[Rfam]
RNA sequence: AAUCGGCGGUUCUUUGAGGGUGGGCCUGAACACUCCCCGCGAAAGGGGGUGACGCCUAAUGACAGUUUUCCAGGGCCUGAUGCUCGCGAUUUCCUUUGCAAGCCUUAUCGUAGCCGUACUGUCGGUGAACCAAAAAAAAUAACCCACCCUUGAGCCGGCAAGCAUAAUGGGCGGGUUUUCGCUUUAUUCCCGAUUCCACUUCCGGGAACCAUCGAUUAAGGGCCAGUGCAUGCUGCAACAUGCAUUGG
Numbered sequence: 001a002a003u004c005g006g007c008g009g010u011u012c013u014u015u016g017a018g019g020g021u022g023g024g025c026c027u028g029a030a031c032a033c034u035c036c037c038c039g040c041g042a043a044a045g046g047g048g049g050u051g052a053c054g055c056c057u058a059a060u061g062a063c064a065g066u067u068u069u070c071c072a073g074g075g076c077c078u079g080a081u082g083c084u085c086g087c088g089a090u091u092u093c094c095u096u097u098g099c100a101a102g103c104c105u106u107a108u109c110g111u112a113g114c115c116g117u118a119c120u121g122u123c124g125g126u127g128a129a130c131c132a133a134a135a136a137a138a139a140u141a142a143c144c145c146a147c148c149c150u151u152g153a154g155c156c157g158g159c160a161a162g163c164a165u166a167a168u169g170g171g172c173g174g175g176u177u178u179u180c181g182c183u184u185u186a187u188u189c190c191c192g193a194u195u196c197c198a199c200u201u202c203c204g205g206g207a208a209c210c211a212u213c214g215a216u217u218a219a220g221g222g223c224c225a226g227u228g229c230a231u232g233c234u235g236c237a238a239c240a241u242g243c244a245u246u247g248g
Base pairs, nucleotide, nucleotide: 001217002216003215004214005213008210009209011193012192013154014153015152016151017150018149019148020147023144024143031051032050034049035048036047037046038045061123062122063121064120065119066118098115164187165186166185194208195207196206197205223248224247225246226245227244228243229242230241231240232239
BsrG: a 248-nucleotide RNA sequence from Neobacillus piezotolerans. The organism belongs to Neobacillus, within Bacteria. The base pairs follow the family's consensus structure, which was predicted with WAR. bsrE, bsrG and bsrH pair through intermolecular interactions with antisense sRNAs. They form type I toxin/antitoxin system that includes an mRNA encoding for a short, toxic peptide (bsrE, bsrG and bsrH) and an antitoxin that is comprised of an antisense RNA. bsrG encodes a 39-amino-acid toxin, and the 180 nucleotide antisense sRNA called SR4 acts as the antitoxin (they overlap by 123 nucleotides). SR4 interaction with the 3'UTR of bsrG RNA promotes bsrG degradation and inhibits its translation. BsrG interferes with cell envelope biosynthesis, causes membrane invaginations and delocalisation of the cell wall synthesis and initiates autolysis. bsrE RNA encodes 30 amino-acid toxin peptide. Its antitoxin gene, SR5 overlaps by 112 nucleotides at the 3' end of bsrE. SR5 also overlaps bsrG from nucleotide 163 to 52 (Rfam overlap check). The antitoxin SR5 promotes bsrE degradation but unlike SR4 it does not directly inhibits toxin mRNA translation. The literature on the family includes a 2008 paper in Gene by Saito et al., "Novel small RNA-encoding genes in the intergenic regions of Bacillus subtilis".